Rfam assigns this 84-nucleotide RNA from Salix purpurea to the family "Small nucleolar RNA SNORD34". For this family Rfam cites "Purified box C/D snoRNPs are able to reproduce site-specific 2'-O-methylation of target RNA in vitro" (Galardi et al., Mol Cell Biol, 2002).

[Rfam]
RNA sequence: GAGGGCCUAUGAUGAUUUGAAUUUGCCUACAUUGUCUGAUCAUCUAAUGAAUGACAGAGACAUAUUAUUAGUUCUGAGGCCUCC
Numbered sequence: 001g002a003g004g005g006c007c008u009a010u011g012a013u014g015a016u017u018u019g020a021a022u023u024u025g026c027c028u029a030c031a032u033u034g035u036c037u038g039a040u041c042a043u044c045u046a047a048u049g050a051a052u053g054a055c056a057g058a059g060a061c062a063u064a065u066u067a068u069u070a071g072u073u074c075u076g077a078g079g080c081c082u083c084c
Stems, first nucleotide, its partner, number of pairs: 001084001004081004